[Rfam]
RNA sequence: AUUACGUUGCGGCUCGUCAUCGGGCACUUUGCUUCCUUUUUUCUAUGCAAGCUGCCUUUUGAAGGGCAACACUGUGAU
Number, nucleotide and partner (000 for none) at each position: 001a000002u000003u000004a075005c074006g073007u000008u071009g070010c000011g000012g067013c066014u065015c064016g000017u062018c061019a060020u000021c000022g000023g056024g055025c000026a000027c000028u051029u050030u049031g048032c047033u000034u000035c000036c000037u000038u000039u000040u000041u000042u000043c000044u000045a000046u000047g032048c031049a030050a029051g028052c000053u000054g000055c024056c023057u000058u000059u000060u019061g018062a017063a000064g015065g014066g013067c012068a000069a000070c009071a008072c000073u006074g005075u004076g000077a000078u000
The record is a 78-nucleotide RNA sequence from Temnothorax curvispinosus, which matches "mir-980 microRNA precursor family" in Rfam.
It scores 61 bits against the family's covariance model.